[Rfam]
RNA sequence: UGGUCAUUACCAAGGCUUUUAGAAUGCAGUUUCUCACUUGCCGUGGACAUGACCACAAAACAUUCCCCCAGUAGGUUUUUUUCUGCUGUGUUGGUAGCAUAGCAUUCAGCCUACUUGGGAACAUUU
Numbered sequence: 001u002g003g004u005c006a007u008u009a010c011c012a013a014g015g016c017u018u019u020u021a022g023a024a025u026g027c028a029g030u031u032u033c034u035c036a037c038u039u040g041c042c043g044u045g046g047a048c049a050u051g052a053c054c055a056c057a058a059a060a061c062a063u064u065c066c067c068c069c070a071g072u073a074g075g076u077u078u079u080u081u082u083c084u085g086c087u088g089u090g091u092u093g094g095u096a097g098c099a100u101a102g103c104a105u106u107c108a109g110c111c112u113a114c115u116u117g118g119g120a121a122c123a124u125u126u
Stems, first nucleotide, its partner, number of pairs: 003053005010046003026041004067119004074111004084104007
Small nucleolar RNA SNORA32: a 126-nucleotide sequence from Myotis myotis. The match comes from Rfam's covariance-model search (107 bits). It is annotated as an H/ACA-box small nucleolar RNA. The source organism's lineage runs through Eukaryota, Deuterostomia, Gnathostomata, Dipnotetrapodomorpha and Myotis. About the family: ACA32 is a member of the H/ACA class of snoRNA that guide the sites of modification of uridines to pseudouridines. Gene Ontology terms of the family: nucleolus and RNA processing. The family has 9 seed sequences and 615 matches in Rfam 15.1.